This 75-nucleotide RNA sequence from Xenopus tropicalis belongs to the Rfam family "Small nucleolar RNA SNORD20". U20 is a C/D box small nucleolar RNA that is encoded in intron 11 of the nucleolin gene in human, mouse and rat. The family's RNA type in Rfam is C/D-box small nucleolar RNA. A search with the family's covariance model found it, with a score of 64 bits.
[Rfam]
RNA sequence: UGGAAGUGAUGAGCUGUUAUCUGAAUUUUGUGAUGAAAAUUAACAAUUUCUCUAGAUAGUCAAGUACUGAUCCAG
Dot-bracket structure: ((((..................................................................)))).